RNA sequence: GCUUAUUGGGUUCGGGCGCACCUCCUCCCAGCGCCUUGAACCUGAUCCGACCGGCGGUUUUCCUCCCAACGCCGGUCAGACGUAAAAAACGACGCCCACCGGUUCUCCUCCCUCCGGUGGGCGUUCGUU
Numbered sequence: 001g002c003u004u005a006u007u008g009g010g011u012u013c014g015g016g017c018g019c020a021c022c023u024c025c026u027c028c029c030a031g032c033g034c035c036u037u038g039a040a041c042c043u044g045a046u047c048c049g050a051c052c053g054g055c056g057g058u059u060u061u062c063c064u065c066c067c068a069a070c071g072c073c074g075g076u077c078a079g080a081c082g083u084a085a086a087a088a089a090c091g092a093c094g095c096c097c098a099c100c101g102g103u104u105c106u107c108c109u110c111c112c113u114c115c116g117g118u119g120g121g122c123g124u125u126c127g128u129u
Stems, first nucleotide, its partner, number of pairs: 007044003011040006017033001049077008058068001092124011
Shown here is a 129-nucleotide RNA sequence from Stappia sp. ES.058, a member of the family "Alphaproteobacterial ar14". Smr14C2 was renamed NfeR1 (Nodule Formation Efficiency RNA) highly expressed in salt stress and during the symbiotic interaction on legume roots. It is annotated as a small RNA. The literature on the family includes a 2012 paper in RNA Biol by del Val et al., "A survey of sRNA families in alpha-proteobacteria". Taxonomically the source falls in Stappia (Bacteria, Pseudomonadati, Pseudomonadota, Hyphomicrobiales).